[Rfam]
RNA sequence: CCCGCCACUAUACCUGUCAUUCCUAGUGACUUGUAUAUUCCAGUGGGGGCUAAUAAAGACCCAGCUCUAGGAAGCAGGACUGCCCAAACACAUGGGUAAUUCUGUGCCGAAAGACCUGGCACACUU
Numbered sequence: 001c002c003c004g005c006c007a008c009u010a011u012a013c014c015u016g017u018c019a020u021u022c023c024u025a026g027u028g029a030c031u032u033g034u035a036u037a038u039u040c041c042a043g044u045g046g047g048g049g050c051u052a053a054u055a056a057a058g059a060c061c062c063a064g065c066u067c068u069a070g071g072a073a074g075c076a077g078g079a080c081u082g083c084c085c086a087a088a089c090a091c092a093u094g095g096g097u098a099a100u101u102c103u104g105u106g107c108c109g110a111a112a113g114a115c116c117u118g119g120c121a122c123a124c125u126u
Stems, first nucleotide, its partner, number of pairs: 005046005018033002022028001061119004066113001068111001070108002075104005083096003
RNA: Small nucleolar RNA SNORA65